[Rfam]
RNA: Small nucleolar RNA SNORD103/SNORD85
Organism: Accipiter nisus
RNA sequence: UCUGGCGAUGAUGACCCACUUGCCCUCACUGAGAACAGCGUUCGCUGAUGAGAGCAGUUUAAUGCGCUCAGCGGAGCCGAGCCAGA
Numbered sequence: 001u002c003u004g005g006c007g008a009u010g011a012u013g014a015c016c017c018a019c020u021u022g023c024c025c026u027c028a029c030u031g032a033g034a035a036c037a038g039c040g041u042u043c044g045c046u047g048a049u050g051a052g053a054g055c056a057g058u059u060u061a062a063u064g065c066g067c068u069c070a071g072c073g074g075a076g077c078c079g080a081g082c083c084a085g086a
Base pairs, nucleotide, nucleotide: 001086002085003084004083005082006081